[Rfam]
RNA sequence: CGAAUCCGCGCGGGAGAGUUCCCGGCCACCGGCCGGGGCGCCGAAGGAGCAAGUCCCUCCCUUGUAAUCUCUCAGGCCCCGUACCGCGCGGACGAG
Numbered sequence: 001c002g003a004a005u006c007c008g009c010g011c012g013g014g015a016g017a018g019u020u021c022c023c024g025g026c027c028a029c030c031g032g033c034c035g036g037g038g039c040g041c042c043g044a045a046g047g048a049g050c051a052a053g054u055c056c057c058u059c060c061c062u063u064g065u066a067a068u069c070u071c072u073c074a075g076g077c078c079c080c081g082u083a084c085c086g087c088g089c090g091g092a093c094g095a096g
Stems, first nucleotide, its partner, number of pairs: 006091008020038006040077003043073002047071003053065002
RNA: Glycine riboswitch aptamer